[Rfam]
RNA sequence: AGCCACAUCAAAGCAGAUUGGGAAACUCUUCAAUUAUAUAAGAAAUACCGAGACAAGCUUAGUCGCCCGAUGGCGGGCUCCAUCUUCCUCCGGGAAGACGUGCUCCAAGCACCGAGGCAGAUUACAAAGGACGGCAAGCACUCAAAUCCUGUCUUUCGGAGUUUCUUCCAAAUCCUUUGAUGAGGCUUUUUUU
Numbered sequence: 001a002g003c004c005a006c007a008u009c010a011a012a013g014c015a016g017a018u019u020g021g022g023a024a025a026c027u028c029u030u031c032a033a034u035u036a037u038a039u040a041a042g043a044a045a046u047a048c049c050g051a052g053a054c055a056a057g058c059u060u061a062g063u064c065g066c067c068c069g070a071u072g073g074c075g076g077g078c079u080c081c082a083u084c085u086u087c088c089u090c091c092g093g094g095a096a097g098a099c100g101u102g103c104u105c106c107a108a109g110c111a112c113c114g115a116g117g118c119a120g121a122u123u124a125c126a127a128a129g130g131a132c133g134g135c136a137a138g139c140a141c142u143c144a145a146a147u148c149c150u151g152u153c154u155u156u157c158g159g160a161g162u163u164u165c166u167u168c169c170a171a172a173u174c175c176u177u178u179g180a181u182g183a184g185g186c187u188u189u190u191u192u193u
Base pairs, nucleotide, nucleotide: 057139058138059137062135063134064133065132067130068129071126072125078120079119081117086095087094088093
RNA: Bacteroidales-1 6S-Bacteroidales RNA suggested